[Rfam]
RNA sequence: CCCCCGUGACGAGUUGCCAUGCUAAUACCGAGGCAUCAGUCGGAGCAGUGACGCUCUGGGCUGGGUGCCGGUGAGUCAGACCACGCCUCUCACCCGGAGACCUGAGGGGC
Numbered sequence: 001c002c003c004c005c006g007u008g009a010c011g012a013g014u015u016g017c018c019a020u021g022c023u024a025a026u027a028c029c030g031a032g033g034c035a036u037c038a039g040u041c042g043g044a045g046c047a048g049u050g051a052c053g054c055u056c057u058g059g060g061c062u063g064g065g066u067g068c069c070g071g072u073g074a075g076u077c078a079g080a081c082c083a084c085g086c087c088u089c090u091c092a093c094c095c096g097g098a099g100a101c102c103u104g105a106g107g108g109g110c
Stems, first nucleotide, its partner, number of pairs: 001109004041058005
About this RNA:
Small nucleolar RNA U6-53/MBII-28: a 110-nucleotide RNA from Ornithorhynchus anatinus. On this family, see Huttenhofer et al., EMBO J 2001: "RNomics: an experimental approach that identifies 201 candidates for novel, small, non-messenger RNAs in mouse". Taxonomically the source falls in Ornithorhynchus (Eukaryota, Metazoa, Deuterostomia, Sarcopterygii).